The record is a 102-nucleotide RNA from Natronincola ferrireducens, which matches "Purine riboswitch aptamer" in Rfam. A search with the family's covariance model found it, with a score of 85 bits. Its family is annotated with purine nucleobase biosynthetic process in the Gene Ontology. Rfam describes the family as follows. Riboswitches are metabolite binding domains within certain messenger RNAs that serve as precision sensors for their corresponding targets. The family's consensus secondary structure is taken from published work.
RNA sequence: AAUAAAAACUUUAUAGCAUCUCGUAUAAUUUUGGAGAUAUGGUCCAUAAGUUUCUACCAGACUGCCACAAAUGGUCUGACUACGGGAGAUUUAUUUCGAUAC
Numbered sequence: 001a002a003u004a005a006a007a008a009c010u011u012u013a014u015a016g017c018a019u020c021u022c023g024u025a026u027a028a029u030u031u032u033g034g035a036g037a038u039a040u041g042g043u044c045c046a047u048a049a050g051u052u053u054c055u056a057c058c059a060g061a062c063u064g065c066c067a068c069a070a071a072u073g074g075u076c077u078g079a080c081u082a083c084g085g086g087a088g089a090u091u092u093a094u095u096u097c098g099a100u101a102c
Stems, first nucleotide, its partner, number of pairs: 019087007029049002032046004058078007